This 85-nucleotide RNA from Eggerthella sp. YY7918 belongs to the Rfam family "c-di-GMP-I riboswitch aptamer". It scores 66 bits against the family's covariance model. GEMM was predicted in a large-scale screen for bacterial structured RNA regulatory elements. Genes associated with GEMM are involved in a diverse array of functions, including chemotaxis regulation, signal transduction, secretion and chitin. The base pairs follow the family's consensus structure, which is taken from published work. NCBI's taxonomy places the organism under Bacteria, Actinomycetota, Coriobacteriia, Eggerthellaceae, Eggerthella.
RNA sequence: AUCGGCUACGGGCAAACCCGUCGAAAGACGGUGACGCAAAGCUAAAGGGCCUUCGCCGCGUGCGGCAUGGCAGCCAGUUGCAAAG
Number, nucleotide and partner (000 for none) at each position: 001a000002u000003c000004g000005g000006c000007u000008a000009c000010g000011g000012g037013c036014a000015a000016a000017c000018c031019c030020g029021u028022c027023g000024a000025a000026a000027g022028a021029c020030g019031g018032u000033g000034a000035c000036g013037c012038a000039a000040a079041g078042c077043u076044a000045a000046a000047g075048g074049g071050c070051c069052u000053u000054c000055g000056c065057c064058g063059c000060g000061u000062g000063c058064g057065g056066c000067a000068u000069g051070g050071c049072a000073g000074c048075c047076a043077g042078u041079u040080g000081c000082a000083a000084a000085g000